Overview
A member of the RNA family "Small nucleolar RNA U2-19" from Phyllostomus discolor, 80 nucleotides long. Lineage of the source: Eukaryota > Eumetazoa > Amniota > Phyllostominae > Phyllostomus. The literature on the family includes a 2004 paper in Curr Biol by Tycowski et al., "Guide RNAs with 5' Caps and Novel Box C/D snoRNA-like Domains for Modification of snRNAs in Metazoa". Rfam links the family to the GO terms RNA processing and nucleolus. The family's consensus secondary structure is taken from published work.

RNA sequence: GAUCAAAGAUGAAAAUGGCCAAAUCUGAGAAUCAGAAGACCUUCCAAUCUACCUGAUGCAUAAUCUCUAUAGUUUUGAGA
Numbered sequence: 001g002a003u004c005a006a007a008g009a010u011g012a013a014a015a016u017g018g019c020c021a022a023a024u025c026u027g028a029g030a031a032u033c034a035g036a037a038g039a040c041c042u043u044c045c046a047a048u049c050u051a052c053c054u055g056a057u058g059c060a061u062a063a064u065c066u067c068u069a070u071a072g073u074u075u076u077g078a079g080a
Base pairs, nucleotide, nucleotide: 029059031057032056033055037050038049039048